Shown here is a 69-nucleotide RNA from Flavobacterium cellulosilyticum, a member of the family "DUF805 RNA".
[Rfam]
RNA sequence: ACAAAGUGGAACCCAGCUACCACUUAAAAAAACGGGGCACAACCGAAAAGCCAUAAGAGUAGGAAAUUA
Numbered sequence: 001a002c003a004a005a006g007u008g009g010a011a012c013c014c015a016g017c018u019a020c021c022a023c024u025u026a027a028a029a030a031a032a033c034g035g036g037g038c039a040c041a042a043c044c045g046a047a048a049a050g051c052c053a054u055a056a057g058a059g060u061a062g063g064a065a066a067u068u069a
Stems, first nucleotide, its partner, number of pairs: 006023004036052003043063002
A search with the family's covariance model found it, with a score of 76 bits. It is annotated as a cis-regulatory element. The base pairs follow the family's consensus structure, which is taken from published work. Rfam 15.1 lists 281 matches to the family in 219 species. The source organism's lineage runs through Bacteria, Pseudomonadati, Bacteroidota, Flavobacteriia and Flavobacterium.